[Rfam]
The family of this 75-nucleotide sequence from Zostera marina is "Small nucleolar RNA SNORD53/SNORD92". Its family is annotated with RNA processing and nucleolus in the Gene Ontology. It scores 46 bits against the family's covariance model. Lineage of the source: Eukaryota > Viridiplantae > Euphyllophyta > Liliopsida > Zostera. The pairing is the family consensus, mapped onto this sequence. The family is grouped with related families in Rfam's "SNORD52 clan".

RNA sequence: UCGCCGUGAUGACACAUUUCAUGGACUAGAGUUUCUGAUCUUAUGUUGACGACAAACCCUUGGCUGUCUGAGCGA
Numbered sequence: 001u002c003g004c005c006g007u008g009a010u011g012a013c014a015c016a017u018u019u020c021a022u023g024g025a026c027u028a029g030a031g032u033u034u035c036u037g038a039u040c041u042u043a044u045g046u047u048g049a050c051g052a053c054a055a056a057c058c059c060u061u062g063g064c065u066g067u068c069u070g071a072g073c074g075a
Base pairs, nucleotide, nucleotide: 001075002074003073004072